[Rfam]
RNA sequence: AUAAUUUGCUAGGGGUGCCUUUGUGCUGAGAGGCUUUUCGCCGACCCUUAUUACUUGAACUGGAUAAUACCAGCGUAAGGAAGCUAUUUUAGACGAUC
Dot-bracket structure: .....(.(((((((..((......))......((.....))...)))).....((((..((((......))))..))))..))).)............